RNA sequence: CGAAAUUAAGGGAAUGGGACUUCCCUGUUAUAAACCGCUAAUAAAGUAGCUGAUAGUUCCUGCUUAACU
Numbered sequence: 001c002g003a004a005a006u007u008a009a010g011g012g013a014a015u016g017g018g019a020c021u022u023c024c025c026u027g028u029u030a031u032a033a034a035c036c037g038c039u040a041a042u043a044a045a046g047u048a049g050c051u052g053a054u055a056g057u058u059c060c061u062g063c064u065u066a067a068c069u
Stems, first nucleotide, its partner, number of pairs: 010025004016060006037050004
Annotation:
This 69-nucleotide sequence from Dysgonomonas mossii belongs to the Rfam family "Fluoride riboswitch aptamer (crcB RNA motif)". The family's consensus secondary structure is taken from published work. Taxonomically the source falls in Dysgonomonas mossii (Bacteria, Pseudomonadati, Bacteroidales, Dysgonomonadaceae).